[Rfam]
This 125-nucleotide RNA from Brassica cretica belongs to the Rfam family "MIR9563 microRNA precursor family". Rfam links the family to the GO terms miRNA-mediated post-transcriptional gene silencing and RISC complex. It scores 116 bits against the family's covariance model. Taxonomically the source falls in Brassica (Eukaryota, Streptophytina, Euphyllophyta, Spermatophyta).
RNA sequence: AGAAUAUAAGAACCCGUCUCUUAAUUUUUAACUAAAAAAACUAAGAACCGGUUCUUAAAUAAAAGUUUUAAGAACCGGUUCUUAACUUUUUUAAUUAAAAGUUAAGAAACGGGUUCUUAUAUUCC
Numbered sequence: 001a002g003a004a005u006a007u008a009a010g011a012a013c014c015c016g017u018c019u020c021u022u023a024a025u026u027u028u029u030a031a032c033u034a035a036a037a038a039a040a041c042u043a044a045g046a047a048c049c050g051g052u053u054c055u056u057a058a059a060u061a062a063a064a065g066u067u068u069u070a071a072g073a074a075c076c077g078g079u080u081c082u083u084a085a086c087u088u089u090u091u092u093a094a095u096u097a098a099a100a101g102u103u104a105a106g107a108a109a110c111g112g113g114u115u116c117u118u119a120u121a122u123u124c125c
Base pairs, nucleotide, nucleotide: 002124003123004122005121006120007119008118009117010116011115012114013113014112015111016110017109019107020106021105022104023103024102025101026100027099028098029097030096031095033093034092035091036090037089038088039087042084043083044082045081046080047079